Rfam assigns this 299-nucleotide RNA sequence from Candidatus Fukatsuia symbiotica to the family "Soft rot Enterobacteriaceae Rev 39 5'UTR". The match comes from Rfam's covariance-model search (128 bits). About the family: From bacteria cultured under starvation conditions. On this family, see Kwenda et al., BMC Genomics 2016: "Discovery and profiling of small RNAs responsive to stress conditions in the plant pathogen Pectobacterium atrosepticum". Pairs were carried over by alignment from the consensus structure, which was predicted with RNAfold.

[Rfam]
RNA sequence: AAAUGUUGCCAUAAAUCAUAUAGCUAUGAUAACUCUGUAUGUACUCAAUUCGACAAAAGACAAUAGAUGACUCAAUGAUGAAAACAACUUUCCAAGUGAUUAACCUACUCCUCAUUAGCGUGGUGGUGAUUCUUAUCCCACCGUGCGGGGUUGCAUUUGGAAGACGAAGGGCUUAGAAAAAAAAGCCAGAAUCUCAAAAAACCCCCGAACCUUUCGGUGCGGGGGUUUUUUAUUGGUCAUUAAAAAUGCGAGGAACAUAGCAUGAACAACAGAACAAAAUACCGUUUUCCUCGUAAAAA
Dot-bracket structure: ....((((.(((.............))).))))...((..(...((.(.((.......))...).))....)..))...........(.(.(.....(((.(..(((..(.(.....).).(((((.(((....)))))))).(.((((......)))).).((.....(((((........)))))....))..((((((((((((.(((....))).))))))))))))..)))).)))......).).).(((...(..(..........).....)...))).............